[Rfam]
RNA sequence: ACCCAGGCACGACCUACGGCCUCACCGGUGCCCGGUCCUCAUCGGACCAGUCUACCGGCGUCACGCCCGCGGGACCGACCUGGUGCCCGACCCUGAGGGA
Numbered sequence: 001a002c003c004c005a006g007g008c009a010c011g012a013c014c015u016a017c018g019g020c021c022u023c024a025c026c027g028g029u030g031c032c033c034g035g036u037c038c039u040c041a042u043c044g045g046a047c048c049a050g051u052c053u054a055c056c057g058g059c060g061u062c063a064c065g066c067c068c069g070c071g072g073g074a075c076c077g078a079c080c081u082g083g084u085g086c087c088c089g090a091c092c093c094u095g096a097g098g099g100a
Base pairs, nucleotide, nucleotide: 001084002083004082005081006080007079013073014072015071017069018068019067025058026057027056028055029054030053
This 100-nucleotide RNA sequence from Corynebacterium terpenotabidum belongs to the Rfam family "L31-Corynebacteriaceae ribosomal protein leader". It is annotated as a cis-regulatory leader. For this family Rfam cites "Discovery of 20 novel ribosomal leader candidates in bacteria and archaea" (Eckert and Weinberg, BMC Microbiol, 2020).